[Rfam]
RNA sequence: CAUGCGGACCGGGCCCCUCUGGCGAUCGUAGCGACGGUCGUGAUGUCGGACCGCAUCG
Numbered sequence: 001c002a003u004g005c006g007g008a009c010c011g012g013g014c015c016c017c018u019c020u021g022g023c024g025a026u027c028g029u030a031g032c033g034a035c036g037g038u039c040g041u042g043a044u045g046u047c048g049g050a051c052c053g054c055a056u057c058g
Stems, first nucleotide, its partner, number of pairs: 006052002009049004022041008